[Rfam]
RNA: speF leader
Organism: Neorhizobium alkalisoli
RNA sequence: UCCCGGCUUUCCAUCAGCCGGGGAUUUUAAAGAGGCACACCAUCAUUGCCGGAAGUGCGGUAGGGAAAACCCUCCAAUCCAAGGCAGACAAAGCCGGAUCAAAGCUCUUGGCGGGGCGUUGAUCUAUCCGUCGCGCGGUAGAGCGUGUCUAGGUU
Numbered sequence: 001u002c003c004c005g006g007c008u009u010u011c012c013a014u015c016a017g018c019c020g021g022g023g024a025u026u027u028u029a030a031a032g033a034g035g036c037a038c039a040c041c042a043u044c045a046u047u048g049c050c051g052g053a054a055g056u057g058c059g060g061u062a063g064g065g066a067a068a069a070c071c072c073u074c075c076a077a078u079c080c081a082a083g084g085c086a087g088a089c090a091a092a093g094c095c096g097g098a099u100c101a102a103a104g105c106u107c108u109u110g111g112c113g114g115g116g117c118g119u120u121g122a123u124c125u126a127u128c129c130g131u132c133g134c135g136c137g138g139u140a141g142a143g144c145g146u147g148u149c150u151a152g153g154u155u
Base pairs, nucleotide, nucleotide: 001023002022003021004020005019006018007017008016034050035049036048037047057136058135059134083095084094104117105116106115107114